[Rfam]
RNA sequence: AAACCUGAAAUGAUGAUUCACAUUCAUGUCUCUUCUCUGAUAAAUUCUUGAAGGAAAUUCUGUGUAUCUGAUCAGGUCU
Number, nucleotide and partner (000 for none) at each position: 001a079002a000003a077004c076005c075006u000007g000008a000009a000010a000011u000012g000013a000014u000015g000016a000017u000018u000019c000020a000021c000022a000023u000024u000025c000026a000027u000028g000029u000030c000031u000032c000033u000034u000035c000036u000037c000038u000039g000040a000041u000042a000043a000044a000045u000046u000047c000048u000049u000050g000051a000052a000053g000054g000055a000056a000057a000058u000059u000060c000061u000062g000063u000064g000065u000066a000067u000068c000069u000070g000071a000072u000073c000074a000075g005076g004077u003078c000079u001

The record is a 79-nucleotide sequence from Jaculus jaculus, which matches "Small nucleolar RNA SNORD111" in Rfam. The base pairs follow the family's consensus structure, which was predicted with RNAalifold. A reference for the family is Huttenhofer et al. (2001), "RNomics: an experimental approach that identifies 201 candidates for novel, small, non-messenger RNAs in mouse", EMBO J. The source organism's lineage runs through Eukaryota, Opisthokonta, Metazoa, Eutheria and Jaculus.